L2-Alphaproteobacteria ribosomal protein leader: a 64-nucleotide RNA sequence from Pseudaestuariivita atlantica. The literature on the family includes a 2020 paper in BMC Microbiol by Eckert and Weinberg, "Discovery of 20 novel ribosomal leader candidates in bacteria and archaea". The base pairs follow the family's consensus structure, which is taken from published work. NCBI's taxonomy places the organism under Bacteria, Pseudomonadati, Alphaproteobacteria, Rhodobacterales, Pseudaestuariivita.
[Rfam]
RNA sequence: CGCGUGUUGCAGCGCGUCUAACAUAGGCAGGGCAACCUGCCGUUUGCUAAACGGAAGACAGAAA
Numbered sequence: 001c002g003c004g005u006g007u008u009g010c011a012g013c014g015c016g017u018c019u020a021a022c023a024u025a026g027g028c029a030g031g032g033c034a035a036c037c038u039g040c041c042g043u044u045u046g047c048u049a050a051a052c053g054g055a056a057g058a059c060a061g062a063a064a
Stems, first nucleotide, its partner, number of pairs: 001016004007012001026041006